The record is a 125-nucleotide sequence from Thioclava sp. SK-1, which matches "ALIL pseudoknot" in Rfam. The organism belongs to Thioclava, within Bacteria.

RNA sequence: AGCGUAUUUUGCCCAGGCGGAGCUCGACCGCCAAUUUCGCAAGGUUCGCCCCGAACGCUUUCAUUGAAGAACAUCGCGCUGAGUUCGGGGUCGAGCCGAUGUGCAAAAUGCUGCAAAUCGCCCAG
Numbered sequence: 001a002g003c004g005u006a007u008u009u010u011g012c013c014c015a016g017g018c019g020g021a022g023c024u025c026g027a028c029c030g031c032c033a034a035u036u037u038c039g040c041a042a043g044g045u046u047c048g049c050c051c052c053g054a055a056c057g058c059u060u061u062c063a064u065u066g067a068a069g070a071a072c073a074u075c076g077c078g079c080u081g082a083g084u085u086c087g088g089g090g091u092c093g094a095g096c097c098g099a100u101g102u103g104c105a106a107a108a109u110g111c112u113g114c115a116a117a118u119c120g121c122c123c124a125g
Base pairs, nucleotide, nucleotide: 016032017031018030019029020028086125088123089122090121097120098119100117102115103114104113105112

Rfam classes the family as a cis-regulatory element.